[Rfam]
RNA: mir-14 microRNA precursor family
RNA sequence: UGUCGGAGGGAGGAAUUGACUAGGCUGUUUUUUAUCAGUCAGUCUUUUUCUCUCUCCUAUA
Numbered sequence: 001u002g003u004c005g006g007a008g009g010g011a012g013g014a015a016u017u018g019a020c021u022a023g024g025c026u027g028u029u030u031u032u033u034a035u036c037a038g039u040c041a042g043u044c045u046u047u048u049u050c051u052c053u054c055u056c057c058u059a060u061a
Base pairs, nucleotide, nucleotide: 001061002060003059005057006056007055008054010052011051012050013049015047018044019043020042021041024039025038026037027036